[Rfam]
Nucleotides: 316
Stems, first nucleotide, its partner, number of pairs: 002315007011063004015033004020028002038059004067306002070303005078295004083290003088285007098277002100273003104269007113260001115258001121255006127246005133240002135237002138234002140231002142181001144179002148175006155168005184228006195220004203212003
Number, partner (000 for none) and nucleotide at each position: 001000c002315g003314g004313u005312g006311g007310g008309c009000u010000a011063g012062u013061c014060a015033g016032g017031g018030c019000a020028g021027c022000u023000a024000g025000g026000c027021g028020u029000c030018g031017c032016u033015u034000g035000u036000a037000a038059c039058c040057c041056g042000a043000a044000a045000u046000c047000g048000c049000c050000g051000a052000u053000a054000c055000g056041c057040g058039g059038g060014u061013g062012a063011c064000g065000a066000a067306g068305c069000u070303u071302u072301c073300g074299g075000c076000c077000a078295g079294g080293u081292g082000c083290a084289u085288u086000g087000a088285c089284u090283u091282u092281a093280u094279g095000u096000c097000a098277a099276g100273u101272c102271c103000a104269a105268a106267a107266u108265c109264u110263u111000a112000a113260c114000g115258u116000u117000g118000a119000a120000a121255c122254c123253u124252c125251g126250u127246c128245c129244u130243g131242c132000u133240g134239g135237g136236a137000a138234u139233g140231u141230g142181g143000u144179g145178a146000u147000u148175g149174c150173c151172g152171a153170g154000a155168c156167a157166a158165a159164a160000g161000g162000a163000g164159u165158u166157u167156u168155g169000g170153u171152u172151c173150g174149g175148c176000u177000u178145u179144c180000u181142u182000a183000a184228u185227c186226g187225u188224g189223g190000g191000a192000a193000c194000c195220g196219g197218u198217c199000c200000a201000g202000g203212c204211c205210c206000g207000g208000a209000a210205g211204g212203g213000a214000g215000c216000a217198g218197a219196c220195u221000u222000a223189c224188c225187g226186c227185g228184g229000a230141c231140a232000a233139c234138a235000g236136u237135c238000g239134c240133u241000u242131g243130c244129g245128g246127g247000g248000u249000u250126g251125c252124g253123g254122g255121g256000c257000g258115g259000a260113g261000g262000a263110g264109g265108g266107a267106u268105u269104u270000c271102g272101g273100a274000g275000a276099c277098u278000g279094u280093a281092u282091a283090a284089g285088g286000a287000a288085g289084a290083u291000g292081u293080a294079u295078c296000g297000a298000a299074c300073c301072g302071g303070a304000u305068g306067c307000a308000u309008g310007c311006u312005c313004a314003c315002c316000u